This 92-nucleotide RNA from Prunus persica belongs to the Rfam family "MIR6288 microRNA precursor family".
Lineage of the source: Eukaryota > Viridiplantae > Gunneridae > Pentapetalae > Prunus.
The sequence is in the family's curated seed alignment.
Rfam links the family to the GO terms miRNA-mediated post-transcriptional gene silencing and RISC complex.
The family's consensus secondary structure was predicted with RNAalifold.
RNA sequence: CUAAAACUAGUUACUUGUUAUUUUUUAAUUGAUUCUUAGUGUGUUAAAGUUUUCUAAGAAUCAAUUAGAAAAUGAUAAGUGCCUAGUUUUGG
Dot-bracket structure: .(((((((((.((((((((((((((((((((((((((((..............)))))))))))))))))))))))))))).))))))))).
Numbered sequence: 001c002u003a004a005a006a007c008u009a010g011u012u013a014c015u016u017g018u019u020a021u022u023u024u025u026u027a028a029u030u031g032a033u034u035c036u037u038a039g040u041g042u043g044u045u046a047a048a049g050u051u052u053u054c055u056a057a058g059a060a061u062c063a064a065u066u067a068g069a070a071a072a073u074g075a076u077a078a079g080u081g082c083c084u085a086g087u088u089u090u091g092g
Stems, first nucleotide, its partner, number of pairs: 002091009012081028